Background: The family of this 75-nucleotide sequence from Gossypium trilobum is "Plastid-ycf2 5UTR RNA". Plastid ycf2 is a non-coding RNA (ncRNA) recognised in plastids. It was found in the prime untranslated region (5UTR) of ycf2 genes, it presents a tRNA-like motif which suggests it can be involved in mRNA maturation, particularly involved in defining the precise 5' end of the transcript. A search with the family's covariance model found it, with a score of 87 bits. The family has 204 seed sequences and 3,521 matches in Rfam 15.1. A reference for the family is Richter et al. (2023), "Retrograde signaling in plants: A critical review focusing on the GUN pathway and beyond", Plant Commun. Pairs were carried over by alignment from the consensus structure, which was predicted with LocARNA.
Nucleotides: 075
Stems, first nucleotide, its partner, number of pairs: 003075006010026002013023002040069003044066006051059001
Number, partner (000 for none) and nucleotide at each position: 001000a002000u003075g004074c005073a006072u007071c008070u009000a010026g011025u012000a013023g014022g015000a016000a017000u018000u019000g020000g021000a022014c023013c024000a025011a026010c027000g028000a029000a030000u031000u032000u033000g034000c035000u036000a037000a038000u039000u040069a041068u042067g043000a044066g045065u046064u047063g048062g049061g050000c051059g052000c053000u054000u055000u056000a057000a058000u059051c060000a061049u062048u063047c064046a065045g066044c067042c068041a069040u070008g071007g072006a073005u074004g075003c